The family of this 60-nucleotide RNA sequence from Erythropalum scandens is "Plastid-psbA-4 3UTR RNA". Rfam's curators put it in the seed alignment. The organism belongs to Erythropalum, within Eukaryota. Its Rfam clan is "Plastid-psbA 3UTR RNA clan". It is annotated as a cis-regulatory element. On this family, see Richter et al., Plant Commun 2023: "Retrograde signaling in plants: A critical review focusing on the GUN pathway and beyond".
[Rfam]
RNA sequence: GAAAGUAAAGGAGCAAUAACCAGUUUCUUGUUCUAGCAAGAGGAUUGGUAUUGCUCCCCU
Numbered sequence: 001g002a003a004a005g006u007a008a009a010g011g012a013g014c015a016a017u018a019a020c021c022a023g024u025u026u027c028u029u030g031u032u033c034u035a036g037c038a039a040g041a042g043g044a045u046u047g048g049u050a051u052u053g054c055u056c057c058c059c060u
Stems, first nucleotide, its partner, number of pairs: 007060001010057009022045001025042006
Dot-bracket structure: ......(..(((((((((...(..((((((......))))))..)...)))))))))..)